The record is a 106-nucleotide RNA from Digitaria exilis, which matches "Small nucleolar RNA snoR97" in Rfam. The family's RNA type in Rfam is H/ACA-box small nucleolar RNA. Taxonomically the source falls in Digitaria (Eukaryota, Spermatophyta, Panicoideae, Panicodae). On this family, see Marker et al., Curr Biol 2002: "Experimental RNomics: identification of 140 candidates for small non-messenger RNAs in the plant Arabidopsis thaliana". A search with the family's covariance model found it, with a score of 70 bits.

[Rfam]
RNA sequence: UGAUUCUGAUUUGCGCUGAGGCUGAAAAACUCGGGAGAUUUUGUGUUGUCAUGGACUUCCAUUUCUUGCUACUGUGAGAUGGGAGUUAAGUAACAGCACGAGAUUU
Numbered sequence: 001u002g003a004u005u006c007u008g009a010u011u012u013g014c015g016c017u018g019a020g021g022c023u024g025a026a027a028a029a030c031u032c033g034g035g036a037g038a039u040u041u042u043g044u045g046u047u048g049u050c051a052u053g054g055a056c057u058u059c060c061a062u063u064u065c066u067u068g069c070u071a072c073u074g075u076g077a078g079a080u081g082g083g084a085g086u087u088a089a090g091u092a093a094c095a096g097c098a099c100g101a102g103a104u105u106u
Stems, first nucleotide, its partner, number of pairs: 042100007054087006062079004